[Rfam]
RNA sequence: AGAAGAGGUAGAGGCGCGAUACUUAAUAGUACUGUUGUGGACGUAAGCAGGAUGAAGCAAUAGGAAAGGAAUUAUCGCCGAAGUAUAGAAUUAAAGCUUUAAUAUUCUAAUGCUGGGCUUAUGCAGAAUAUGUAUAAGACUGUCACAAAUGUUUUUGUGGUGAGCUAUCAUUCAG
Numbered sequence: 001a002g003a004a005g006a007g008g009u010a011g012a013g014g015c016g017c018g019a020u021a022c023u024u025a026a027u028a029g030u031a032c033u034g035u036u037g038u039g040g041a042c043g044u045a046a047g048c049a050g051g052a053u054g055a056a057g058c059a060a061u062a063g064g065a066a067a068g069g070a071a072u073u074a075u076c077g078c079c080g081a082a083g084u085a086u087a088g089a090a091u092u093a094a095a096g097c098u099u100u101a102a103u104a105u106u107c108u109a110a111u112g113c114u115g116g117g118c119u120u121a122u123g124c125a126g127a128a129u130a131u132g133u134a135u136a137a138g139a140c141u142g143u144c145a146c147a148a149a150u151g152u153u154u155u156u157g158u159g160g161u162g163a164g165c166u167a168u169c170a171u172u173c174a175g
Base pairs, nucleotide, nucleotide: 007169008168009167010166011165016078017077018076019075020074021073023071024070032063033062034061035060036059037058038057082114083113084112085111086109087108088107089106090105091104115141116140118138119137120136121135122134123133124132125131143160144159145158146157147156148155149154
This 175-nucleotide RNA from Clostridium paraputrificum belongs to the Rfam family "Lysine riboswitch aptamer". Its family is annotated with lysine biosynthetic process in the Gene Ontology. NCBI's taxonomy places the organism under Bacteria, Bacillati, Clostridia, Eubacteriales, Clostridium. A search with the family's covariance model found it, with a score of 122 bits. Riboswitches are metabolite binding domains within certain messenger RNAs that serve as precision sensors for their corresponding targets. Pairs were carried over by alignment from the consensus structure, which is taken from published work.